Shown here is a 129-nucleotide RNA from Crossiella cryophila, a member of the family "FMN riboswitch aptamer (RFN element)". Pairs were carried over by alignment from the consensus structure, which is taken from published work. The match comes from Rfam's covariance-model search (95 bits).
RNA sequence: UCGUGCGCUCCGGGGUCGGUGAAAAUCCGAACCGGCGGUGACAGCCCGCGACCCGCCGGCAGCCAGCCGGCGGUUGACACGGUGGAAUUCCGUGGCCGACGGUGAAAGUCCGGAUGGGAGGCUGCGCAC
Number, nucleotide and partner (000 for none) at each position: 001u000002c000003g127004u126005g125006c124007g123008c000009u121010c120011c000012g000013g000014g000015g000016u000017c029018g028019g027020u000021g000022a000023a000024a000025a000026u000027c019028c018029g017030a000031a109032c108033c098034g097035g049036c048037g047038g046039u000040g000041a000042c000043a000044g096045c095046c038047c037048g036049c035050g000051a000052c000053c073054c072055g000056c000057c000058g000059g000060c000061a000062g000063c000064c000065a000066g000067c000068c000069g000070g000071c000072g054073g053074u000075u000076g000077a000078c094079a093080c092081g091082g090083u000084g000085g000086a000087a000088u000089u000090c082091c081092g080093u079094g078095g045096c044097c034098g033099a000100c112101g111102g110103u000104g000105a000106a000107a000108g032109u031110c102111c101112g100113g000114a000115u000116g000117g000118g000119a000120g010121g009122c000123u007124g006125c005126g004127c003128a000129c000
Rfam describes the family as follows. The RFN element is a highly conserved domain that is found frequently in the 5'-untranslated regions of prokaryotic mRNAs that encode for flavin mononucleotide (FMN) biosynthesis and transport proteins.